[Rfam]
RNA sequence: UCCGGGGGAAGCUCACUGCCGAGGCCACCCACGGGGUGCGGCGUCACCCGCGGCCCCGCCUCGGGGAAGGUCUGAGACAAGGGCCAGCUCCGCGGCCCCAGCAGGGCCCUGCCCGCGACGGGCGGGUGAGCCACCAGCAAGGGGGGGCUCCGCUCUGGGGCCGGUCCUGGGCAGGAGAAGCCGUCGGUGGGCGCUGGAUGGAGGCCGCCUCCUUCCGGGUGACCGAUCGCGGCGGAUGCUCGUGGCCCCACGGAGCUUUGAGACAGACUCACGGCCGGCCAGCGCUGAGUCCAAUGGGUGAGGUGGGGCAGCGCCCCAUAACCCAAUUCAGACUACUCUCCCCCGGG
Numbered sequence: 001u002c003c004g005g006g007g008g009a010a011g012c013u014c015a016c017u018g019c020c021g022a023g024g025c026c027a028c029c030c031a032c033g034g035g036g037u038g039c040g041g042c043g044u045c046a047c048c049c050g051c052g053g054c055c056c057c058g059c060c061u062c063g064g065g066g067a068a069g070g071u072c073u074g075a076g077a078c079a080a081g082g083g084c085c086a087g088c089u090c091c092g093c094g095g096c097c098c099c100a101g102c103a104g105g106g107c108c109c110u111g112c113c114c115g116c117g118a119c120g121g122g123c124g125g126g127u128g129a130g131c132c133a134c135c136a137g138c139a140a141g142g143g144g145g146g147g148c149u150c151c152g153c154u155c156u157g158g159g160g161c162c163g164g165u166c167c168u169g170g171g172c173a174g175g176a177g178a179a180g181c182c183g184u185c186g187g188u189g190g191g192c193g194c195u196g197g198a199u200g201g202a203g204g205c206c207g208c209c210u211c212c213u214u215c216c217g218g219g220u221g222a223c224c225g226a227u228c229g230c231g232g233c234g235g236a237u238g239c240u241c242g243u244g245g246c247c248c249c250a251c252g253g254a255g256c257u258u259u260g261a262g263a264c265a266g267a268c269u270c271a272c273g274g275c276c277g278g279c280c281a282g283c284g285c286u287g288a289g290u291c292c293a294a295u296g297g298g299u300g301a302g303g304u305g306g307g308g309c310a311g312c313g314c315c316c317c318a319u320a321a322c323c324c325a326a327u328u329c330a331g332a333c334u335a336c337u338c339u340c341c342c343c344c345g346g347g
Stems, first nucleotide, its partner, number of pairs: 001347004007341003012302006020063005034049005039043001072331005082276004094108005109125006126272005132266001146257007303319007
About this RNA: The record is a 347-nucleotide RNA from Upupa epops, which matches "Nuclear RNase P" in Rfam. The match comes from Rfam's covariance-model search (146 bits). Ribonuclease P (RNase P) is a ubiquitous endoribonuclease, found in archaea, bacteria and eukarya as well as chloroplasts and mitochondria. Its family is annotated with tRNA processing, ribonuclease P complex and ribonuclease P activity in the Gene Ontology. The family's RNA type in Rfam is ribozyme.